The family of this 107-nucleotide RNA sequence from Acetohalobium arabaticum is "TPP riboswitch aptamer (THI element)".

[Rfam]
RNA sequence: GGUAGUUGCUGGGGGAGCUCUGUAAGGGCUGAGAAGGAGAUAUAAUCUCUUGACCCCUUGAACCUGAUCUGGAUAAUACCAGCGAAGGGAAGUGUGUGGGUUGAGUU
Numbered sequence: 001g002g003u004a005g006u007u008g009c010u011g012g013g014g015g016a017g018c019u020c021u022g023u024a025a026g027g028g029c030u031g032a033g034a035a036g037g038a039g040a041u042a043u044a045a046u047c048u049c050u051u052g053a054c055c056c057c058u059u060g061a062a063c064c065u066g067a068u069c070u071g072g073a074u075a076a077u078a079c080c081a082g083c084g085a086a087g088g089g090a091a092g093u094g095u096g097u098g099g100g101u102u103g104a105g106u107u
Stems, first nucleotide, its partner, number of pairs: 007094004011057004016051001017029005036050005063088003069082004

Source information: Pairs were carried over by alignment from the consensus structure, which is taken from published work.